The record is a 204-nucleotide RNA from Dermatophagoides pteronyssinus, which matches "U11 spliceosomal RNA" in Rfam. A search with the family's covariance model found it, with a score of 60 bits. It is annotated as a spliceosomal small nuclear RNA.
RNA sequence: GAAAAGGGAGUUAACCUUUACCCGAAUAGUAUUCAGUAAUGAAUACUAUUCGAAAUCAAAGAUGGUUGAUGUAUUUUGGCAAUCGGUAUCGGCUGAUUUGCAAUCAAAAUACAUUUAGAAUCGUUAUCAAGAGAUUCUGAACUCAUAAUUUUUGCAACAAGUGGAGUAUAGCUGCUUCGAUUUCGAAGAAUUAAGCGCUCCACA
Numbered sequence: 001g002a003a004a005a006g007g008g009a010g011u012u013a014a015c016c017u018u019u020a021c022c023c024g025a026a027u028a029g030u031a032u033u034c035a036g037u038a039a040u041g042a043a044u045a046c047u048a049u050u051c052g053a054a055a056u057c058a059a060a061g062a063u064g065g066u067u068g069a070u071g072u073a074u075u076u077u078g079g080c081a082a083u084c085g086g087u088a089u090c091g092g093c094u095g096a097u098u099u100g101c102a103a104u105c106a107a108a109a110u111a112c113a114u115u116u117a118g119a120a121u122c123g124u125u126a127u128c129a130a131g132a133g134a135u136u137c138u139g140a141a142c143u144c145a146u147a148a149u150u151u152u153u154g155c156a157a158c159a160a161g162u163g164g165a166g167u168a169u170a171g172c173u174g175c176u177u178c179g180a181u182u183u184c185g186a187a188g189a190a191u192u193a194a195g196c197g198c199u200c201c202a203c204a
Base pairs, nucleotide, nucleotide: 008144009143010142011141012140013067014066015065016064068115069114070113071112072111073110074109075108076107077106078105079104116139117138118137119136120135121134122133162202163201164200165199171198172197174196175195176194177193